[Rfam]
RNA sequence: CGUCGCCCGGGCUUGGGAGAGCUCGACGCGGCGGACGACGGAGCGGUUUGGCCUCGGGAGGGCCAGUCCGGUUCGGCACAAUCAGGGGAGAUGCCGAUGCAGAAUGGCCUUCUGGUCGGACUGUCACGCCAGGUCGCGUUGU
Numbered sequence: 001c002g003u004c005g006c007c008c009g010g011g012c013u014u015g016g017g018a019g020a021g022c023u024c025g026a027c028g029c030g031g032c033g034g035a036c037g038a039c040g041g042a043g044c045g046g047u048u049u050g051g052c053c054u055c056g057g058g059a060g061g062g063c064c065a066g067u068c069c070g071g072u073u074c075g076g077c078a079c080a081a082u083c084a085g086g087g088g089a090g091a092u093g094c095c096g097a098u099g100c101a102g103a104a105u106g107g108c109c110u111u112c113u114g115g116u117c118g119g120a121c122u123g124u125c126a127c128g129c130c131a132g133g134u135c136g137c138g139u140u141g142u
Stems, first nucleotide, its partner, number of pairs: 001033006009024006039076001041074004050064005094119005100114005

This 142-nucleotide sequence from Pseudolabrys taiwanensis belongs to the Rfam family "flg-Rhizobiales RNA".
The base pairs follow the family's consensus structure, which is taken from published work.
Taxonomically the source falls in Pseudolabrys (Bacteria, Pseudomonadota, Alphaproteobacteria, Xanthobacteraceae).
By type it is a cis-regulatory element.
A search with the family's covariance model found it, with a score of 80 bits.